[Rfam]
RNA sequence: GACGCGUCCGGGCGAGAGGCUGCACCGGCCGUGCGCCUGACUGGUCGGUGGGACUUUCGUCCGUUUGCGUC
Numbered sequence: 001g002a003c004g005c006g007u008c009c010g011g012g013c014g015a016g017a018g019g020c021u022g023c024a025c026c027g028g029c030c031g032u033g034c035g036c037c038u039g040a041c042u043g044g045u046c047g048g049u050g051g052g053a054c055u056u057u058c059g060u061c062c063g064u065u066u067g068c069g070u071c
Base pairs, nucleotide, nucleotide: 003069004068005067006066009063010062011061012060013059014058015057017055018054020052021051023050024049026047027046028045029044030043
RNA: mir-278 microRNA precursor family
Organism: Thrips palmi